[Rfam]
Rfam assigns this 127-nucleotide RNA sequence from Salmo salar to the family "Small nucleolar RNA SNORA8". The match comes from Rfam's covariance-model search (39 bits). Lineage of the source: Eukaryota > Actinopterygii > Teleostei > Salmonidae > Salmo. Rfam 15.1 lists 1,490 matches to the family in 610 species.
RNA sequence: AGGACUGCAUGGUAUCAGCAGCCAGCCACUAGUCUGGUUCCACUGUUCAUUAGUCAGUGCAUGAACAAUUCGACAUCUGGCAUCGUUGGUCUCCAUUCCUCUGUGCCGGGAGUCCUGGUAUACAGUC
Numbered sequence: 001a002g003g004a005c006u007g008c009a010u011g012g013u014a015u016c017a018g019c020a021g022c023c024a025g026c027c028a029c030u031a032g033u034c035u036g037g038u039u040c041c042a043c044u045g046u047u048c049a050u051u052a053g054u055c056a057g058u059g060c061a062u063g064a065a066c067a068a069u070u071c072g073a074c075a076u077c078u079g080g081c082a083u084c085g086u087u088g089g090u091c092u093c094c095a096u097u098c099c100u101c102u103g104u105g106c107c108g109g110g111a112g113u114c115c116u117g118g119u120a121u122a123c124a125g126u127c
Base pairs, nucleotide, nucleotide: 002060004058005057006056007055014054015053017051018046019045020044021043024039025038026037027036028035068121069120070118071117072116079107080106081105082104083103
Dot-bracket structure: .(.((((......((.(((((..(((((......)))))...))))....).)))))).).......(((((......(((((...................)))))........))).))......

Rfam describes the family as follows. ACA8 is a member of the H/ACA class of snoRNA that guide the sites of modification of uridines to pseudouridines. Gene Ontology terms of the family: RNA processing and nucleolus.